Background
This 207-nucleotide RNA from Oryza nivara belongs to the Rfam family "MIR812 microRNA precursor family". The family's consensus secondary structure was predicted with RNAalifold. The organism belongs to Oryza, within Eukaryota.

RNA sequence: UUUAAGAGCAACCAUAAGUUUCCAUGCUUAAUUUUAAUCGUCCGUCUUAUUUGAUUUGUUUUUUUAUAAUUAGUAUUUUUAUUGUUAUGAGAUUAUAAAACAUGAAUAGUACUUUAUGCGUGACUUAUGUUUUUUUUAUUUUUUUCAUUGUUUUUAAAUAAGACAGAUGAUCAAAGUUAGACACAGAAAAUCAUGGUUGCAUUUAAA
Numbered sequence: 001u002u003u004a005a006g007a008g009c010a011a012c013c014a015u016a017a018g019u020u021u022c023c024a025u026g027c028u029u030a031a032u033u034u035u036a037a038u039c040g041u042c043c044g045u046c047u048u049a050u051u052u053g054a055u056u057u058g059u060u061u062u063u064u065u066a067u068a069a070u071u072a073g074u075a076u077u078u079u080u081a082u083u084g085u086u087a088u089g090a091g092a093u094u095a096u097a098a099a100a101c102a103u104g105a106a107u108a109g110u111a112c113u114u115u116a117u118g119c120g121u122g123a124c125u126u127a128u129g130u131u132u133u134u135u136u137u138a139u140u141u142u143u144u145u146c147a148u149u150g151u152u153u154u155u156a157a158a159u160a161a162g163a164c165a166g167a168u169g170a171u172c173a174a175a176g177u178u179a180g181a182c183a184c185a186g187a188a189a190a191u192c193a194u195g196g197u198u199g200c201a202u203u204u205a206a207a
Stems, first nucleotide, its partner, number of pairs: 028180008037171006044164007